S. aureus tsr24 small RNA: a 258-nucleotide RNA from Staphylococcus massiliensis. A search with the family's covariance model found it, with a score of 52 bits. The base pairs follow the family's consensus structure, which was predicted with RNAfold. A reference for the family is Carroll et al. (2016), "Genome-wide Annotation, Identification, and Global Transcriptomic Analysis of Regulatory or Small RNA Gene Expression in Staphylococcus aureus", MBio. The family has 4 seed sequences and 98 matches in Rfam 15.1. The source organism's lineage runs through Bacteria, Bacillati, Bacillota, Staphylococcaceae and Staphylococcus massiliensis.
[Rfam]
RNA sequence: UAAUUAGGGUGGCAACACGGAAAUUUCGUCCCUUACAUAGUUAAGUACUAUGUAAGGGGCUUUUUUUAUUGCAUGAAACUCAAACUCGAAGUUUAAAAUUCUUAGUUUUUAAACGUUUUUGCUAAAUGACAACUUUAAUUAUCUAAUUUCCUAACAGCUGACUCCUAGGGGAGUAGCGUGCGUCCGGAGACUACAGGCUCCGGCCACGCCUCAGGAAAGCAUGCUGUUAAGGAAAUUAGGGUGAAUUAAAUACUUUAA
Numbered sequence: 001u002a003a004u005u006a007g008g009g010u011g012g013c014a015a016c017a018c019g020g021a022a023a024u025u026u027c028g029u030c031c032c033u034u035a036c037a038u039a040g041u042u043a044a045g046u047a048c049u050a051u052g053u054a055a056g057g058g059g060c061u062u063u064u065u066u067u068a069u070u071g072c073a074u075g076a077a078a079c080u081c082a083a084a085c086u087c088g089a090a091g092u093u094u095a096a097a098a099u100u101c102u103u104a105g106u107u108u109u110u111a112a113a114c115g116u117u118u119u120u121g122c123u124a125a126a127u128g129a130c131a132a133c134u135u136u137a138a139u140u141a142u143c144u145a146a147u148u149u150c151c152u153a154a155c156a157g158c159u160g161a162c163u164c165c166u167a168g169g170g171g172a173g174u175a176g177c178g179u180g181c182g183u184c185c186g187g188a189g190a191c192u193a194c195a196g197g198c199u200c201c202g203g204c205c206a207c208g209c210c211u212c213a214g215g216a217a218a219g220c221a222u223g224c225u226g227u228u229a230a231g232g233a234a235a236u237u238a239g240g241g242u243g244a245a246u247u248a249a250a251u252a253c254u255u256u257a258a
Stems, first nucleotide, its partner, number of pairs: 001248005021094008095100001116241004121236001126134001128133001136145002147235005152229006163216004168212004173207002176204002180200001182198003